The family of this 109-nucleotide RNA from Zea mays is "MIR5565 microRNA precursor family".
Gene Ontology terms of the family: RISC complex and miRNA-mediated post-transcriptional gene silencing.
NCBI's taxonomy places the organism under Eukaryota, Viridiplantae, Poales, Andropogonodae, Zea.
The base pairs follow the family's consensus structure, which was predicted with RNAalifold.
RNA sequence: ACUCUAGUAUUGACCUCAAUCCACUUGUAUUGUGGUGGAUUGAGGUGUAAUUGAAACUAAUUUACACCUCAAUCCACUUCAACACAUGUGGAUUGAGUCCAAUACUAGA
Numbered sequence: 001a002c003u004c005u006a007g008u009a010u011u012g013a014c015c016u017c018a019a020u021c022c023a024c025u026u027g028u029a030u031u032g033u034g035g036u037g038g039a040u041u042g043a044g045g046u047g048u049a050a051u052u053g054a055a056a057c058u059a060a061u062u063u064a065c066a067c068c069u070c071a072a073u074c075c076a077c078u079u080c081a082a083c084a085c086a087u088g089u090g091g092a093u094u095g096a097g098u099c100c101a102a103u104a105c106u107a108g109a
Base pairs, nucleotide, nucleotide: 004108005107006106007105008104009103010102011101012100016096017095018094019093020092021091022090023089024088026086027085028084030082031081032080035077036076037075038074039073040072041071042070043069045067046066047065